[Rfam]
RNA sequence: GAUUAGAAUAAGAAUAGCAGUUUAUCUUAGUACGCAAGGACCAGAUUAAGUGCACCUAUGGUUUACCAGUUGUAUAACAUUAAAAUAAAUGAAUGCAUGGCUGGAAAGCUAUGUGCAUAAAUGAUAACUACUGAAAGCAUAUAAGUAGGAAACAGAGCUAUGAAUUAUUCUUUCCCUUUAUAUUUCUUGAUAUAAAGGGAGUAAAAUUAGCAAUAGACUAUUGCUUUAAUAGGCUACCUACAAAUAGGGGGUUAACUUUUUAGUUAACUAUGAGGUGUAAGAAUAGUAAUAUUUUAAGCCAUCUAGUACUAAAUAUUUAUAA
Numbered sequence: 001g002a003u004u005a006g007a008a009u010a011a012g013a014a015u016a017g018c019a020g021u022u023u024a025u026c027u028u029a030g031u032a033c034g035c036a037a038g039g040a041c042c043a044g045a046u047u048a049a050g051u052g053c054a055c056c057u058a059u060g061g062u063u064u065a066c067c068a069g070u071u072g073u074a075u076a077a078c079a080u081u082a083a084a085a086u087a088a089a090u091g092a093a094u095g096c097a098u099g100g101c102u103g104g105a106a107a108g109c110u111a112u113g114u115g116c117a118u119a120a121a122u123g124a125u126a127a128c129u130a131c132u133g134a135a136a137g138c139a140u141a142u143a144a145g146u147a148g149g150a151a152a153c154a155g156a157g158c159u160a161u162g163a164a165u166u167a168u169u170c171u172u173u174c175c176c177u178u179u180a181u182a183u184u185u186c187u188u189g190a191u192a193u194a195a196a197g198g199g200a201g202u203a204a205a206a207u208u209a210g211c212a213a214u215a216g217a218c219u220a221u222u223g224c225u226u227u228a229a230u231a232g233g234c235u236a237c238c239u240a241c242a243a244a245u246a247g248g249g250g251g252u253u254a255a256c257u258u259u260u261u262a263g264u265u266a267a268c269u270a271u272g273a274g275g276u277g278u279a280a281g282a283a284u285a286g287u288a289a290u291a292u293u294u295u296a297a298g299c300c301a302u303c304u305a306g307u308a309c310u311a312a313a314u315a316u317u318u319a320u321a322a
Base pairs, nucleotide, nucleotide: 005171006170007169008168009167015160016159017158018157021049022048024046025045026044027043050118051117052116053115054114055113059111060110061109066104067103068102069101070100071097072096073095074094075093122154123153128148129147130146131145132144174199175198176197177196178195179194180193181192182191183190184189202319205317206316207315209225210224211223212222213221230311231310232309233307234306235305236304